This 138-nucleotide sequence from Drosophila albomicans belongs to the Rfam family "Small nucleolar RNA psi18S-841/snoR66".
Rfam describes the family as follows. psi18S-841 is a member of the H/ACA class of snoRNA. This family is responsible for guiding the modification of uridine 841 in Drosophila 18S rRNA to pseudouridine.
By type it is an H/ACA-box small nucleolar RNA.
RNA sequence: UGCAAGCGCACUCUGUGUCACAUUGACGCCUUCAUGUGAUGACAAUUUGUAAGUUUGCUAUAACAAACUGAUGUUGUGAUUUAUCCAUGUGAUUAUGUACUCAAAAUGAUUGCAUUGUAUUAAGCAGCUCACAGCUGU
Number, nucleotide and partner (000 for none) at each position: 001u000002g058003c057004a056005a055006g054007c053008g000009c000010a050011c049012u000013c000014u044015g043016u042017g040018u039019c038020a037021c036022a035023u034024u000025g033026a032027c000028g000029c000030c000031u000032u026033c025034a023035u022036g021037u020038g019039a018040u017041g000042a016043c015044a014045a000046u000047u000048u000049g011050u010051a000052a000053g007054u006055u005056u004057g003058c002059u000060a000061u000062a000063a000064c137065a136066a000067a000068c000069u131070g130071a129072u000073g128074u127075u126076g000077u000078g125079a000080u000081u000082u000083a000084u000085c117086c000087a115088u114089g113090u112091g111092a110093u109094u108095a000096u106097g000098u000099a000100c000101u000102c000103a000104a000105a000106a096107u000108g094109a093110u092111u091112g090113c089114a088115u087116u000117g085118u000119a000120u000121u000122a000123a000124g000125c078126a075127g074128c073129u071130c070131a069132c000133a000134g000135c000136u065137g064138u000
Lineage of the source: Eukaryota > Eumetazoa > Mandibulata > Cyclorrhapha > Drosophila.